Shown here is a 134-nucleotide sequence from Acer yangbiense, a member of the family "Small nucleolar RNA snoR111". The match comes from Rfam's covariance-model search (71 bits).

RNA sequence: AAAAUGUAUGGGGAGACAGUUUGGUGUCUCUUCACUCUGAAGAACAGCGAGGUAGAUCAAAAAUCAAACAGCCGAGAUAUCGUUUCAUUCGUCACUUUCUAUUCAUUGACGAUUAGAUUGUUGCUUGUCCACAU
Dot-bracket structure: .....(.(..(.((((((......))))))..)..).)................................(.((((..(((.......((((((.(........).))))))...))).....)))).).....
Numbered sequence: 001a002a003a004a005u006g007u008a009u010g011g012g013g014a015g016a017c018a019g020u021u022u023g024g025u026g027u028c029u030c031u032u033c034a035c036u037c038u039g040a041a042g043a044a045c046a047g048c049g050a051g052g053u054a055g056a057u058c059a060a061a062a063a064u065c066a067a068a069c070a071g072c073c074g075a076g077a078u079a080u081c082g083u084u085u086c087a088u089u090c091g092u093c094a095c096u097u098u099c100u101a102u103u104c105a106u107u108g109a110c111g112a113u114u115a116g117a118u119u120g121u122u123g124c125u126u127g128u129c130c131a132c133a134u
Stems, first nucleotide, its partner, number of pairs: 006038001008036001011033001013030006071129001073127004079118003089112006096105001
The family's RNA type in Rfam is H/ACA-box small nucleolar RNA. The source organism's lineage runs through Eukaryota, Streptophytina, Spermatophyta, Magnoliopsida and Acer. A reference for the family is Marker et al. (2002), "Experimental RNomics: identification of 140 candidates for small non-messenger RNAs in the plant Arabidopsis thaliana", Curr Biol.